Background:
tRNA: a 74-nucleotide sequence from Ceratodon purpureus. Rfam's curators write: Transfer RNA (tRNA) molecules are approximately 80 nucleotides in length. By type it is a transfer RNA. Lineage of the source: Eukaryota > Streptophyta > Embryophyta > Pseudoditrichales > Ceratodon.
RNA sequence: GCCUAAUUAGCUCAGCUGGUCAGAGCGUCGUGCUAAUAACGCGAAGGCCACAGGUUCGAGACCUGUAUUGGGCA
Numbered sequence: 001g002c003c004u005a006a007u008u009a010g011c012u013c014a015g016c017u018g019g020u021c022a023g024a025g026c027g028u029c030g031u032g033c034u035a036a037u038a039a040c041g042c043g044a045a046g047g048c049c050a051c052a053g054g055u056u057c058g059a060g061a062c063c064u065g066u067a068u069u070g071g072g073c074a
Stems, first nucleotide, its partner, number of pairs: 001073007010026004028044005050066005